Rfam assigns this 46-nucleotide sequence from Puniceibacterium antarcticum to the family "Guanidine-II riboswitch aptamer (mini-ykkC)".
About the family: Simpler in structure and has fewer highly conserved nucleotide positions than the ykkC-yxkD leader.
Lineage of the source: Bacteria > Pseudomonadota > Rhodobacterales > Paracoccaceae > Puniceibacterium.
The family's consensus secondary structure is taken from published work.
[Rfam]
RNA sequence: GAAUGAGGACGACCUCUCCUGAUGGACAGUUGCCGGGACGACCCGG
Numbered sequence: 001g002a003a004u005g006a007g008g009a010c011g012a013c014c015u016c017u018c019c020u021g022a023u024g025g026a027c028a029g030u031u032g033c034c035g036g037g038a039c040g041a042c043c044c045g046g
Stems, first nucleotide, its partner, number of pairs: 001018002005016004033046005